[Rfam]
RNA sequence: GUCAGAUGAUGUGAAGUGCAUAGCAUUAGCACUCUGUGCAAAGAUGACCUUCAUCUAUCACCCUAUCACUGAUGGCU
Numbered sequence: 001g002u003c004a005g006a007u008g009a010u011g012u013g014a015a016g017u018g019c020a021u022a023g024c025a026u027u028a029g030c031a032c033u034c035u036g037u038g039c040a041a042a043g044a045u046g047a048c049c050u051u052c053a054u055c056u057a058u059c060a061c062c063c064u065a066u067c068a069c070u071g072a073u074g075g076c077u
Base pairs, nucleotide, nucleotide: 001076002075003074004073029039030038031037032036
Rfam assigns this 77-nucleotide RNA from Ceyx cyanopectus to the family "Small nucleolar RNA SNORD83". Rfam 15.1 lists 1,393 matches to the family in 644 species. The match comes from Rfam's covariance-model search (55 bits). A reference for the family is Jady and Kiss (2000), "Characterisation of the U83 and U84 small nucleolar RNAs: two novel 2'-O-ribose methylation guide RNAs that lack complementarities to ribosomal RNAs", Nucleic Acids Res. The family's RNA type in Rfam is C/D-box small nucleolar RNA. Lineage of the source: Eukaryota > Metazoa > Gnathostomata > Sauria > Ceyx.